[Rfam]
TPP riboswitch aptamer (THI element): a 96-nucleotide RNA from Aphanothece sacrum. Lineage of the source: Bacteria > Cyanobacteriota > Chroococcales > Aphanothece > Aphanothece sacrum. From the family's description: Vitamin B(1) in its active form thiamin pyrophosphate (TPP) is an essential coenzyme that is synthesised by coupling of pyrimidine and thiazole moieties in bacteria. The previously detected thiamin-regulatory element, thi box was extended, resulting in a new, highly conserved RNA secondary structure, the THI element, which is widely distributed in eubacteria and also occurs in some archaea. Analysis of operon structures identified a large number of new candidate thiamin-regulated genes, mostly transporters, in various prokaryotic organisms. The match comes from Rfam's covariance-model search (68 bits).
RNA sequence: AGUUAAGGCUAGGGGUGUCUGUUAACUCAGGCUGAGAAAGACCCUUAGAACCUGAGACUGGGUAAUACCAGCGUAGGGAAGCUGUUUAUCGAGGUA
Numbered sequence: 001a002g003u004u005a006a007g008g009c010u011a012g013g014g015g016u017g018u019c020u021g022u023u024a025a026c027u028c029a030g031g032c033u034g035a036g037a038a039a040g041a042c043c044c045u046u047a048g049a050a051c052c053u054g055a056g057a058c059u060g061g062g063u064a065a066u067a068c069c070a071g072c073g074u075a076g077g078g079a080a081g082c083u084g085u086u087u088a089u090c091g092a093g094g095u096a
Stems, first nucleotide, its partner, number of pairs: 007083004011045004016039001017032005051077004058071004